Rfam assigns this 55-nucleotide RNA to the family "L31-Actinobacteria ribosomal protein leader". For this family Rfam cites "Discovery of 20 novel ribosomal leader candidates in bacteria and archaea" (Eckert and Weinberg, BMC Microbiol, 2020).
[Rfam]
RNA sequence: CCGGCUCCGGUUCACGCCGCUCGACAUGGCGACAUGUCGAGGCGACCCGGCGGCC
Numbered sequence: 001c002c003g004g005c006u007c008c009g010g011u012u013c014a015c016g017c018c019g020c021u022c023g024a025c026a027u028g029g030c031g032a033c034a035u036g037u038c039g040a041g042g043c044g045a046c047c048c049g050g051c052g053g054c055c
Base pairs, nucleotide, nucleotide: 003055004054005053007050008049009048010047015044016043017042018041021040022039023038024037025036026035027034028033